The record is a 34-nucleotide RNA sequence, which matches "L31-Firmicutes ribosomal protein leader" in Rfam.
On this family, see Eckert and Weinberg, BMC Microbiol 2020: "Discovery of 20 novel ribosomal leader candidates in bacteria and archaea".
The family is grouped with related families in Rfam's "Ribosomal Protein L31 Leader clan".
[Rfam]
RNA sequence: CUCUGAAGCAGUCAAUGUUUCAGGGCAAAAGGAG
Numbered sequence: 001c002u003c004u005g006a007a008g009c010a011g012u013c014a015a016u017g018u019u020u021c022a023g024g025g026c027a028a029a030a031g032g033a034g
Base pairs, nucleotide, nucleotide: 001025002024003023004022005021006020007019008018009017010016
It is one of the family's seed sequences.